[Rfam]
mir-8/mir-141/mir-200 microRNA precursor family: a 67-nucleotide RNA sequence from Trichobilharzia regenti. Pairs were carried over by alignment from the consensus structure, which was predicted with RNAalifold.
RNA sequence: UAUGACAUCUUACGAACAGUAUUUGACAGAAAAUUCUUCUCUAAUACUGUUUGGUAAAGAUGCCAGC
Dot-bracket structure: ..((.((((((((.(((((((((.((.............)).)))))))).).)))).)))).))..
Numbered sequence: 001u002a003u004g005a006c007a008u009c010u011u012a013c014g015a016a017c018a019g020u021a022u023u024u025g026a027c028a029g030a031a032a033a034u035u036c037u038u039c040u041c042u043a044a045u046a047c048u049g050u051u052u053g054g055u056a057a058a059g060a061u062g063c064c065a066g067c
Stems, first nucleotide, its partner, number of pairs: 003065002006062004010057004015052001016050008025041002
Taxonomically the source falls in Trichobilharzia (Eukaryota, Eumetazoa, Strigeidida, Schistosomatidae). Its family is annotated with RISC complex and miRNA-mediated post-transcriptional gene silencing in the Gene Ontology.